[Rfam]
RNA sequence: CCGGGGGGGGGGGGGUCCCUUAGCCCAGAUUGCGAGAAGGUGCAGGCCAGGCCGAGGGACCCCACCGGUACACA
Numbered sequence: 001c002c003g004g005g006g007g008g009g010g011g012g013g014g015g016u017c018c019c020u021u022a023g024c025c026c027a028g029a030u031u032g033c034g035a036g037a038a039g040g041u042g043c044a045g046g047c048c049a050g051g052c053c054g055a056g057g058g059a060c061c062c063c064a065c066c067g068g069u070a071c072a073c074a
Base pairs, nucleotide, nucleotide: 004071006069009066010065012063013062014061015060016059017058018057019056020055021054023052024051025050028047030045031044032043033042034041